[Rfam]
RNA sequence: CUUGUCGAGGAGCGUUGCGACCCGUGAAAAUGCGGGCCAGGCUCGGCAACCAACAACGGCGCUCGCAAACC
Numbered sequence: 001c002u003u004g005u006c007g008a009g010g011a012g013c014g015u016u017g018c019g020a021c022c023c024g025u026g027a028a029a030a031u032g033c034g035g036g037c038c039a040g041g042c043u044c045g046g047c048a049a050c051c052a053a054c055a056a057c058g059g060c061g062c063u064c065g066c067a068a069a070c071c
Base pairs, nucleotide, nucleotide: 002049003048004047005046006045007044008043021036022035023034024033025032026031
RNA: SAH (S-adenosyl-L-homocysteine) riboswitch aptamer